[Rfam]
RNA sequence: UGUGUGUGAUGAGCUGGCAGUGUAUUGUUAGCUCGUUGAAUAUGUGAAUGGCAUCGGCUAACAUGCAACUGCUGUCUUAUUGCAUAUA
Numbered sequence: 001u002g003u004g005u006g007u008g009a010u011g012a013g014c015u016g017g018c019a020g021u022g023u024a025u026u027g028u029u030a031g032c033u034c035g036u037u038g039a040a041u042a043u044g045u046g047a048a049u050g051g052c053a054u055c056g057g058c059u060a061a062c063a064u065g066c067a068a069c070u071g072c073u074g075u076c077u078u079a080u081u082g083c084a085u086a087u088a
Base pairs, nucleotide, nucleotide: 001088002087003086004085005084006083007082008081009080010079011078012077013076015074016073017072018071019070020069021068022066023065024064027062028061029060030059031058032057033056035054036053041050042049043048
RNA: mir-449 microRNA precursor family
Organism: Pan troglodytes